[Rfam]
RNA: mir-190 microRNA precursor family
Organism: Fopius arisanus
RNA sequence: ACUUUCGUGAGAUAUGUUUGAUAUUCUUGGUUGUGUUACUCAGAGAUCGACCAGGAAUCAAACAUAUUAUCACGACGGG
Numbered sequence: 001a002c003u004u005u006c007g008u009g010a011g012a013u014a015u016g017u018u019u020g021a022u023a024u025u026c027u028u029g030g031u032u033g034u035g036u037u038a039c040u041c042a043g044a045g046a047u048c049g050a051c052c053a054g055g056a057a058u059c060a061a062a063c064a065u066a067u068u069a070u071c072a073c074g075a076c077g078g079g
Stems, first nucleotide, its partner, number of pairs: 005075005011068012024055002029052005